[Rfam]
RNA sequence: UAGUGUUAUAGCUCUUUUAGAAUUUAUCUAGCAUGUUUUCCACUUUCCCCUGGAAGACCCC
Number, nucleotide and partner (000 for none) at each position: 001u000002a000003g000004u000005g000006u000007u000008a000009u000010a000011g000012c000013u000014c000015u000016u000017u000018u000019a000020g000021a000022a000023u000024u000025u000026a000027u000028c000029u000030a000031g000032c000033a000034u000035g058036u057037u056038u055039u054040c053041c052042a051043c000044u000045u000046u000047c000048c000049c000050c000051u042052g041053g040054a039055a038056g037057a036058c035059c000060c000061c000